[Rfam]
RNA: Glycine riboswitch aptamer
Organism: Micromonospora sp. HM5-17
RNA sequence: CAACCUCGCGAGCGAGAGACCGCCGGGUGCACACCGGGCGGCGCCGAAGGGGCAAACCCUCCCCGGAACCUCUCAGGCAAAAGGAGCUCGCGAGCUGG
Numbered sequence: 001c002a003a004c005c006u007c008g009c010g011a012g013c014g015a016g017a018g019a020c021c022g023c024c025g026g027g028u029g030c031a032c033a034c035c036g037g038g039c040g041g042c043g044c045c046g047a048a049g050g051g052g053c054a055a056a057c058c059c060u061c062c063c064c065g066g067a068a069c070c071u072c073u074c075a076g077g078c079a080a081a082a083g084g085a086g087c088u089c090g091c092g093a094g095c096u097g098g
Base pairs, nucleotide, nucleotide: 006093007092008091009090010089011088012087013086020041021040022039023038043078044077045076046074047073050072051071052070057065